Rfam assigns this 75-nucleotide RNA from Alligator sinensis to the family "Mammalian CPEB3 ribozyme".
The base pairs follow the family's consensus structure, which is taken from published work.
[Rfam]
RNA sequence: UCACAAAUUCAAAGCCACAGCAGAAGUGCUCACAGCAUGGCCAUGUUAGAUUCCAAUGAAUCUGUGAAUUCUGCU
Numbered sequence: 001u002c003a004c005a006a007a008u009u010c011a012a013a014g015c016c017a018c019a020g021c022a023g024a025a026g027u028g029c030u031c032a033c034a035g036c037a038u039g040g041c042c043a044u045g046u047u048a049g050a051u052u053c054c055a056a057u058g059a060a061u062c063u064g065u066g067a068a069u070u071c072u073g074c075u
Stems, first nucleotide, its partner, number of pairs: 014041003019075007026038003047064007
For this family Rfam cites "A genomewide search for ribozymes reveals an HDV-like sequence in the human CPEB3 gene" (Salehi-Ashtiani et al., Science, 2006). The organism belongs to Alligator, within Eukaryota.